The family of this 74-nucleotide sequence from Medioppia subpectinata is "mir-8/mir-141/mir-200 microRNA precursor family".
Gene Ontology terms of the family: miRNA-mediated post-transcriptional gene silencing and RISC complex.
NCBI's taxonomy places the organism under Eukaryota, Arachnida, Oribatida, Oppiidae, Medioppia.
RNA sequence: AAUGCCAUCUUACCAGACAGCGUUAGAUUUGCCCAUUAUAUCAAUCUCUAAUACUGUCAGGUAAAGAUGUCCAU
Numbered sequence: 001a002a003u004g005c006c007a008u009c010u011u012a013c014c015a016g017a018c019a020g021c022g023u024u025a026g027a028u029u030u031g032c033c034c035a036u037u038a039u040a041u042c043a044a045u046c047u048c049u050a051a052u053a054c055u056g057u058c059a060g061g062u063a064a065a066g067a068u069g070u071c072c073a074u
Base pairs, nucleotide, nucleotide: 004071006069007068008067009066010064011063012062013061014060016058017057018056019055020054022052023051024050025049026048027047